[Rfam]
RNA sequence: AUUGUCGAAUUCACUUCAAUCCACAUGUGUUGGAGUGGAUUUGGGUGGAAUUUAGUUCAAGUUCCACUCUAAUCCACCCAACACAUGUGGAUUGAUGCGAAUCCGAUU
Numbered sequence: 001a002u003u004g005u006c007g008a009a010u011u012c013a014c015u016u017c018a019a020u021c022c023a024c025a026u027g028u029g030u031u032g033g034a035g036u037g038g039a040u041u042u043g044g045g046u047g048g049a050a051u052u053u054a055g056u057u058c059a060a061g062u063u064c065c066a067c068u069c070u071a072a073u074c075c076a077c078c079c080a081a082c083a084c085a086u087g088u089g090g091a092u093u094g095a096u097g098c099g100a101a102u103c104c105g106a107u108u
Stems, first nucleotide, its partner, number of pairs: 004107004009102004014097001016095017035077007043069001045067003
Source information
The family of this 108-nucleotide sequence from Sorghum bicolor is "MIR5565 microRNA precursor family". Lineage of the source: Eukaryota > Streptophyta > Poales > Poaceae > Sorghum. It scores 104 bits against the family's covariance model.